[Rfam]
RNA sequence: UCCAGUGGUAGUCAGCUGUCCAGGGCAGCACAGUGCCUGUGAUGGUGUUACACUGCUGGGAGAUAAAUGUCAGUCACUUCUUCUGGCUGUUGUCUCCGUUCUGGAGACAGCUGAAACCAAGGAGAAGUGGCCUUGUGCUUCCAUGAGAGUGUGCUAAGGGCUUGCUAUCCCUCUAGUUCUAGUCCGGAAGCAUACACG
Numbered sequence: 001u002c003c004a005g006u007g008g009u010a011g012u013c014a015g016c017u018g019u020c021c022a023g024g025g026c027a028g029c030a031c032a033g034u035g036c037c038u039g040u041g042a043u044g045g046u047g048u049u050a051c052a053c054u055g056c057u058g059g060g061a062g063a064u065a066a067a068u069g070u071c072a073g074u075c076a077c078u079u080c081u082u083c084u085g086g087c088u089g090u091u092g093u094c095u096c097c098g099u100u101c102u103g104g105a106g107a108c109a110g111c112u113g114a115a116a117c118c119a120a121g122g123a124g125a126a127g128u129g130g131c132c133u134u135g136u137g138c139u140u141c142c143a144u145g146a147g148a149g150u151g152u153g154c155u156a157a158g159g160g161c162u163u164g165c166u167a168u169c170c171c172u173c174u175a176g177u178u179c180u181a182g183u184c185c186g187g188a189a190g191c192a193u194a195c196a197c198g
Stems, first nucleotide, its partner, number of pairs: 001060009011051002015046006021039004069131004074126001079123004084116001087113001089111001091109007135193008151179001153177001155175002158172003
Small nucleolar RNA SNORA74: a 198-nucleotide RNA from Anas zonorhyncha. The match comes from Rfam's covariance-model search (103 bits). Clan: SNORA74 clan. Rfam classes the family as an H/ACA-box small nucleolar RNA. Pairs were carried over by alignment from the consensus structure, which was predicted with PFOLD. U19 belongs to the H/ACA class of snoRNAs. snoRNAs bind a number of proteins (including dyskerin, Gar1p and Nop10p in the case of the H/ACA class) to form snoRNP complexes. Its family is annotated with RNA processing and nucleolus in the Gene Ontology. Taxonomically the source falls in Anas (Eukaryota, Deuterostomia, Gnathostomata, Sauropsida).